[Rfam]
Nucleotides: 085
Stems, first nucleotide, its partner, number of pairs: 003083004010076003018073008026062002029059001031057004038052002040049001042047001
Number, partner (000 for none) and nucleotide at each position: 001000u002000u003083u004082c005081a006080c007000a008000g009000u010076g011075a012074u013000a014000g015000c016000u017000g018073a019072c020071c021070a022069g023068g024067g025066c026062c027061c028000c029059u030000g031057a032056c033055c034054u035000a036000u037000a038052c039051a040049g041000a042047c043000c044000u045000c046000a047042g048000c049040c050000a051039u052038g053000g054034g055033g056032g057031u058000u059029a060000u061027g062026g063000c064000c065000a066025g067024u068023c069022c070021u071020g072019g073018u074012g075011u076010c077000u078000g079000a080006g081005u082004g083003a084000u085000u

A member of the RNA family "Small nucleolar RNA SNORD86" from Trichechus manatus, 85 nucleotides long. The source organism's lineage runs through Eukaryota, Bilateria, Dipnotetrapodomorpha, Afrotheria and Trichechus manatus. Gene Ontology terms of the family: nucleolus and RNA processing. Rfam classes the family as a C/D-box small nucleolar RNA. From the family's description: U86 belongs to the C/D family of snoRNAs. It is the human orthologue of Xenopus laevis U86 and has no identified RNA target.